A member of the RNA family "M-box riboswitch aptamer (ykoK leader)" from Alkaliphilus metalliredigens, 172 nucleotides long. Rfam 15.1 lists 1,095 matches to the family in 932 species.
RNA sequence: AAAAUAACUUGUUAGGAGAGGCUCCUAAAUGAACACAGGCUAUUGCCCAAAAAUGUCGAGAGACGCCAAUGGGUAGAACAGGCAUGAUCGGAUUAAGGUCUGCUUAAGAUAGCUGAUUCAAUUACUUGAAUCUACGUCAUUUAGUGCUAAAACCAGUACGAGGAGUUAAUAG
Numbered sequence: 001a002a003a004a005u006a007a008c009u010u011g012u013u014a015g016g017a018g019a020g021g022c023u024c025c026u027a028a029a030u031g032a033a034c035a036c037a038g039g040c041u042a043u044u045g046c047c048c049a050a051a052a053a054u055g056u057c058g059a060g061a062g063a064c065g066c067c068a069a070u071g072g073g074u075a076g077a078a079c080a081g082g083c084a085u086g087a088u089c090g091g092a093u094u095a096a097g098g099u100c101u102g103c104u105u106a107a108g109a110u111a112g113c114u115g116a117u118u119c120a121a122u123u124a125c126u127u128g129a130a131u132c133u134a135c136g137u138c139a140u141u142u143a144g145u146g147c148u149a150a151a152a153c154c155a156g157u158a159c160g161a162g163g164a165g166u167u168a169a170u171a172g
Stems, first nucleotide, its partner, number of pairs: 005168006011159002013096001015154002020148003025144008039113005045074005054065004081104004087099003115132005